[Rfam]
RNA sequence: AAAGACCAAGCCGAAAAUCUUUAAUAGAGUAGGCA
Numbered sequence: 001a002a003a004g005a006c007c008a009a010g011c012c013g014a015a016a017a018u019c020u021u022u023a024a025u026a027g028a029g030u031a032g033g034c035a
Stems, first nucleotide, its partner, number of pairs: 002021004010034003